[Rfam]
RNA sequence: CUCUUCGACACGGGGUGCCUAACGGCUGAGAACACACCCGUCGAACCUGAUCUGGUCAACACCAGCGUAGGGAUGUCUGCACGUGGGACA
Numbered sequence: 001c002u003c004u005u006c007g008a009c010a011c012g013g014g015g016u017g018c019c020u021a022a023c024g025g026c027u028g029a030g031a032a033c034a035c036a037c038c039c040g041u042c043g044a045a046c047c048u049g050a051u052c053u054g055g056u057c058a059a060c061a062c063c064a065g066c067g068u069a070g071g072g073a074u075g076u077c078u079g080c081a082c083g084u085g086g087g088a089c090a
Base pairs, nucleotide, nucleotide: 007077008076009075010074011040012039013038014037016034017026018025019024046071047070048069049068052065053064054063055062
The family of this 90-nucleotide sequence from Rhodococcus sp. 1168 is "TPP riboswitch aptamer (THI element)". The organism belongs to Rhodococcus, within Bacteria. Vitamin B(1) in its active form thiamin pyrophosphate (TPP) is an essential coenzyme that is synthesised by coupling of pyrimidine and thiazole moieties in bacteria. Pairs were carried over by alignment from the consensus structure, which is taken from published work.